[Rfam]
RNA sequence: UGUUUGCAAUCGCUGAAUCGCAAGAAUGGGGGAACCACCGUGGGGUGAAUCCUGACUGCUGUUAUGGCCAGUCGGGAGGGGUUACCAUCAAUCCUAAUCCGUCAGCUAACCUCGUAAGCGUUGAUCGGGAAGUAGU
Number, nucleotide and partner (000 for none) at each position: 001u000002g000003u000004u000005u000006g000007c000008a000009a000010u000011c120012g119013c118014u117015g000016a000017a000018u025019c024020g000021c000022a000023a000024g019025a018026a115027u114028g113029g112030g111031g110032g000033a000034a000035c000036c042037a041038c000039c000040g000041u037042g036043g100044g099045g098046u000047g000048a000049a000050u000051c076052c075053u074054g073055a072056c071057u070058g069059c000060u000061g000062u000063u000064a000065u000066g000067g000068c000069c058070a057071g056072u055073c054074g053075g052076g051077a000078g000079g094080g093081g092082u091083u000084a000085c000086c000087a000088u000089c000090a000091a082092u081093c080094c079095u000096a000097a000098u045099c044100c043101g000102u000103c000104a000105g000106c000107u000108a000109a000110c031111c030112u029113c028114g027115u026116a000117a014118g013119c012120g011121u000122u000123g000124a000125u000126c000127g000128g000129g000130a000131a000132g000133u000134a000135g000136u000
Description:
This 136-nucleotide sequence from Oscillospiraceae bacterium HV4-5-C5C belongs to the Rfam family "c-di-AMP riboswitch aptamer (ydaO/yuaA leader)". Lineage of the source: Bacteria > Bacillota > Clostridia > Eubacteriales > Oscillospiraceae.